[Rfam]
RNA sequence: AAGUGAUACAGCUCUUUUAGAAUUUGUCUAGCAGGUUUUCCAGUUCUUACUGGAAGAUCCUC
Numbered sequence: 001a002a003g004u005g006a007u008a009c010a011g012c013u014c015u016u017u018u019a020g021a022a023u024u025u026g027u028c029u030a031g032c033a034g035g036u037u038u039u040c041c042a043g044u045u046c047u048u049a050c051u052g053g054a055a056g057a058u059c060c061u062c
Stems, first nucleotide, its partner, number of pairs: 034059011
Dot-bracket structure: .................................(((((((((((....)))))))))))...
This 62-nucleotide RNA from Propithecus coquereli belongs to the Rfam family "U7 small nuclear RNA". Pairs were carried over by alignment from the consensus structure, which was predicted with PFOLD. The organism belongs to Propithecus, within Eukaryota.